Shown here is a 76-nucleotide RNA from Alligator sinensis, a member of the family "Mammalian CPEB3 ribozyme". Rfam 15.1 lists 5,706 matches to the family in 197 species.
RNA sequence: AGUUGCAAGUUCAAGGCCACAGCAGAAGUGCUCAUGCUGCAGCCUGUCAGAGUCCAACAGAACUGUGAAUUCUGCU
Numbered sequence: 001a002g003u004u005g006c007a008a009g010u011u012c013a014a015g016g017c018c019a020c021a022g023c024a025g026a027a028g029u030g031c032u033c034a035u036g037c038u039g040c041a042g043c044c045u046g047u048c049a050g051a052g053u054c055c056a057a058c059a060g061a062a063c064u065g066u067g068a069a070u071u072c073u074g075c076u
Stems, first nucleotide, its partner, number of pairs: 015044003021076007028040003048065003053060001